[Rfam]
RNA sequence: GCCAGCCAUGGUGGCGUGCACCUGUAGUCCUAGCUACUCAGGAGGCAAAGGUGGGAGGAUUGUUUGAGUCCAGGAGUUCUGGGCUGCAUUGUGCUAUGCCUAUUGGGUGUCCACACUAAGUUUGGCAUCAAUUCGGUGACGUCCCAUGGGUGGGGGACCACCAGGUUGCCUAAGGGGUGAACCAGACCAGGUGAACUUAACCAGGUGAGAAAUGGAGCAGGUCAAAACUCCCAUGCUGAUCAGUAGUGGGAUCACGCCUGUGAAUAGCCACUGCACUCCAGCCUGGGCGAUAUAGUGAGACCGUGUCUCUU
Numbered sequence: 001g002c003c004a005g006c007c008a009u010g011g012u013g014g015c016g017u018g019c020a021c022c023u024g025u026a027g028u029c030c031u032a033g034c035u036a037c038u039c040a041g042g043a044g045g046c047a048a049a050g051g052u053g054g055g056a057g058g059a060u061u062g063u064u065u066g067a068g069u070c071c072a073g074g075a076g077u078u079c080u081g082g083g084c085u086g087c088a089u090u091g092u093g094c095u096a097u098g099c100c101u102a103u104u105g106g107g108u109g110u111c112c113a114c115a116c117u118a119a120g121u122u123u124g125g126c127a128u129c130a131a132u133u134c135g136g137u138g139a140c141g142u143c144c145c146a147u148g149g150g151u152g153g154g155g156g157a158c159c160a161c162c163a164g165g166u167u168g169c170c171u172a173a174g175g176g177g178u179g180a181a182c183c184a185g186a187c188c189a190g191g192u193g194a195a196c197u198u199a200a201c202c203a204g205g206u207g208a209g210a211a212a213u214g215g216a217g218c219a220g221g222u223c224a225a226a227a228c229u230c231c232c233a234u235g236c237u238g239a240u241c242a243g244u245a246g247u248g249g250g251a252u253c254a255c256g257c258c259u260g261u262g263a264a265u266a267g268c269c270a271c272u273g274c275a276c277u278c279c280a281g282c283c284u285g286g287g288c289g290a291u292a293u294a295g296u297g298a299g300a301c302c303g304u305g306u307c308u309c310u311u
Stems, first nucleotide, its partner, number of pairs: 001046003004023002009018002028043003049308005055302001060298005068288007079281005085275004090270002093268005099262001104260007111250002114248005120241001122239007129168005135162004142155005169175002176229003185222001187220001192215001